[Rfam]
RNA sequence: GCGCAUGCCUGAAAACUUGUAACCUAAGCCACGCACGGGGAACCUCGUUUCGCCAACAUUGCUUAGGGGAAAGUCCCCGGACUCUGGGCAGAGAUGUCCUGCAUGCAGCGCAGAGCGGUGGGUUGCGUGGCGUGUCAAUGCUGAGACGUCCUGAGUGAUGGAGCAUAACGCGUGCAAUCCAGGUUUGUCAAUGAAACAGAUAUUCAAGUGAAGUACAAGCGUGCUUCUACAGAACGGGGCUCAUUCUCAGCUUGCG
Numbered sequence: 001g002c003g004c005a006u007g008c009c010u011g012a013a014a015a016c017u018u019g020u021a022a023c024c025u026a027a028g029c030c031a032c033g034c035a036c037g038g039g040g041a042a043c044c045u046c047g048u049u050u051c052g053c054c055a056a057c058a059u060u061g062c063u064u065a066g067g068g069g070a071a072a073g074u075c076c077c078c079g080g081a082c083u084c085u086g087g088g089c090a091g092a093g094a095u096g097u098c099c100u101g102c103a104u105g106c107a108g109c110g111c112a113g114a115g116c117g118g119u120g121g122g123u124u125g126c127g128u129g130g131c132g133u134g135u136c137a138a139u140g141c142u143g144a145g146a147c148g149u150c151c152u153g154a155g156u157g158a159u160g161g162a163g164c165a166u167a168a169c170g171c172g173u174g175c176a177a178u179c180c181a182g183g184u185u186u187g188u189c190a191a192u193g194a195a196a197c198a199g200a201u202a203u204u205c206a207a208g209u210g211a212a213g214u215a216c217a218a219g220c221g222u223g224c225u226u227c228u229a230c231a232g233a234a235c236g237g238g239g240c241u242c243a244u245u246c247u248c249a250g251c252u253u254g255c256g
Stems, first nucleotide, its partner, number of pairs: 002256004007251002011248002015209005023067007038053001040051003072241002075239004087098004099113004104108001116182001121179006130171004138166004148159003211226006